[Rfam]
RNA sequence: AAUUUCGACAGUCGCUGGCGAAAGCUAGAGGAAAGUCCAUGCUCGCACGAUCUGCGAUGAUCGUAGUGUUUGUGCUGGAUGAAGUCAUAAAUCCAGGCAGGUUGAUCCUGACGGCUGUCGUAUUUCCUAAGGGAAACUAUGGAAAUACGGCUUUAAAAGUGCCACAGAGACGAGCUAUUCUGGAAACAGAAUAGGUGGAACGGGUAAACCCCGCAAGUGAGAAACCCAAAUUUGGUAGGGGAACUGAUCAAGGGGAACUGAACCUAAGAUCGGAUAGGGAAACCUAUAGAUAAAUGACUGUCUGAUACAGAACAUGGCUUAUGAA
Numbered sequence: 001a002a003u004u005u006c007g008a009c010a011g012u013c014g015c016u017g018g019c020g021a022a023a024g025c026u027a028g029a030g031g032a033a034a035g036u037c038c039a040u041g042c043u044c045g046c047a048c049g050a051u052c053u054g055c056g057a058u059g060a061u062c063g064u065a066g067u068g069u070u071u072g073u074g075c076u077g078g079a080u081g082a083a084g085u086c087a088u089a090a091a092u093c094c095a096g097g098c099a100g101g102u103u104g105a106u107c108c109u110g111a112c113g114g115c116u117g118u119c120g121u122a123u124u125u126c127c128u129a130a131g132g133g134a135a136a137c138u139a140u141g142g143a144a145a146u147a148c149g150g151c152u153u154u155a156a157a158a159g160u161g162c163c164a165c166a167g168a169g170a171c172g173a174g175c176u177a178u179u180c181u182g183g184a185a186a187c188a189g190a191a192u193a194g195g196u197g198g199a200a201c202g203g204g205u206a207a208a209c210c211c212c213g214c215a216a217g218u219g220a221g222a223a224a225c226c227c228a229a230a231u232u233u234g235g236u237a238g239g240g241g242a243a244c245u246g247a248u249c250a251a252g253g254g255g256a257a258c259u260g261a262a263c264c265u266a267a268g269a270u271c272g273g274a275u276a277g278g279g280a281a282a283c284c285u286a287u288a289g290a291u292a293a294a295u296g297a298c299u300g301u302c303u304g305a306u307a308c309a310g311a312a313c314a315u316g317g318c319u320u321a322u323g324a325a
Base pairs, nucleotide, nucleotide: 004325005324006323007302008301009300010299011298012297013296015028016027017026018025019024033320034319035318037317038316039315040314041313042221043220044219045218046217047064048063049062050061051060052059070216071215072214073213074212075096076095077094078093079092080091097112098110099109100108101107113211114210117152119150124144125143126142127141131138132137159209160208161205162204163203175194176193177192178191179190180189181188182187225240226239227238244273245272246271247270248269249268274287275286276285277284278283
Bacterial RNase P class B: a 325-nucleotide sequence from Faecalicoccus pleomorphus.
Rfam classes the family as a ribozyme.
Lineage of the source: Bacteria > Bacillati > Erysipelotrichia > Erysipelotrichaceae > Faecalicoccus.
Pairs were carried over by alignment from the consensus structure, which is taken from published work.
Rfam's curators write: Ribonuclease P (RNase P) is a ubiquitous endoribonuclease, found in archaea, bacteria and eukarya as well as chloroplasts and mitochondria.